Rfam assigns this 36-nucleotide RNA from Aquisalibacillus elongatus to the family "Ribosomal protein L19 leader". It is annotated as a cis-regulatory leader. Rfam's curators write: This family is a putative r-protein leader autoregulatory structure found in B. subtilis and other low-GC Gram-positive bacteria. It is located in the 5' untranslated regions of mRNAs encoding ribosomal protein L19 (rplS). The source organism's lineage runs through Bacteria, Bacillota, Bacilli, Caryophanales and Aquisalibacillus.

[Rfam]
RNA sequence: ACGAUGUUCCGCUGCGGUUAAAGGCAAGAGCAUUAG
Number, nucleotide and partner (000 for none) at each position: 001a000002c000003g034004a033005u032006g031007u030008u029009c028010c000011g000012c000013u026014g025015c023016g000017g000018u000019u000020a000021a000022a000023g015024g000025c014026a013027a000028g009029a008030g007031c006032a005033u004034u003035a000036g000